[Rfam]
RNA: Small nucleolar RNA R32/R81/Z41
RNA sequence: UGAAGAAAGUGAUGAACGUGAUUAAAUGGUGAUGGUGAAUUCCAUCUGAUCCGCUAAUAUUUUUCACUUCGCUACGUUCUUUCUGAUUCUUCC
Numbered sequence: 001u002g003a004a005g006a007a008a009g010u011g012a013u014g015a016a017c018g019u020g021a022u023u024a025a026a027u028g029g030u031g032a033u034g035g036u037g038a039a040u041u042c043c044a045u046c047u048g049a050u051c052c053g054c055u056a057a058u059a060u061u062u063u064u065c066a067c068u069u070c071g072c073u074a075c076g077u078u079c080u081u082u083c084u085g086a087u088u089c090u091u092c093c
Stems, first nucleotide, its partner, number of pairs: 004090004